RNA sequence: UGGACCAGUGAUGACCACUGGUGGCAUAUGAGUCAUACACAUGAACACCAUGUUUCUAGAACUCUGAGGUCCAA
Numbered sequence: 001u002g003g004a005c006c007a008g009u010g011a012u013g014a015c016c017a018c019u020g021g022u023g024g025c026a027u028a029u030g031a032g033u034c035a036u037a038c039a040c041a042u043g044a045a046c047a048c049c050a051u052g053u054u055u056c057u058a059g060a061a062c063u064c065u066g067a068g069g070u071c072c073a074a
Base pairs, nucleotide, nucleotide: 002072003071004070005069006068